[Rfam]
RNA: SAH (S-adenosyl-L-homocysteine) riboswitch aptamer
Organism: Thauera sinica
RNA sequence: UCUUCCGAGGAGCGCUGCAAGGCGCCGGCCGCAUCCCCUGCGUCGGCCCCCAGGCUCGGAACCCGCCACUCCCGGCGGGCAUGUCCAACGGCGCUCACCUGAU
Numbered sequence: 001u002c003u004u005c006c007g008a009g010g011a012g013c014g015c016u017g018c019a020a021g022g023c024g025c026c027g028g029c030c031g032c033a034u035c036c037c038c039u040g041c042g043u044c045g046g047c048c049c050c051c052a053g054g055c056u057c058g059g060a061a062c063c064c065g066c067c068a069c070u071c072c073c074g075g076c077g078g079g080c081a082u083g084u085c086c087a088a089c090g091g092c093g094c095u096c097a098c099c100u101g102a103u
Base pairs, nucleotide, nucleotide: 003061004060005059006058007057008056021049022048024047025046026045027044028043029042